RNA sequence: AGGUGUCCUACAGGAGUGACCUGAGAAUCACAUGCCCGCAUCACCCAUCCUUGCUCUUGCUCUCAUGUGUUCUCAGGUCGCCCCUGCUGGACUCCC
Numbered sequence: 001a002g003g004u005g006u007c008c009u010a011c012a013g014g015a016g017u018g019a020c021c022u023g024a025g026a027a028u029c030a031c032a033u034g035c036c037c038g039c040a041u042c043a044c045c046c047a048u049c050c051u052u053g054c055u056c057u058u059g060c061u062c063u064c065a066u067g068u069g070u071u072c073u074c075a076g077g078u079c080g081c082c083c084c085u086g087c088u089g090g091a092c093u094c095c096c
Stems, first nucleotide, its partner, number of pairs: 007090002011086004016081004023074004029069005
RNA: MIR398 microRNA precursor family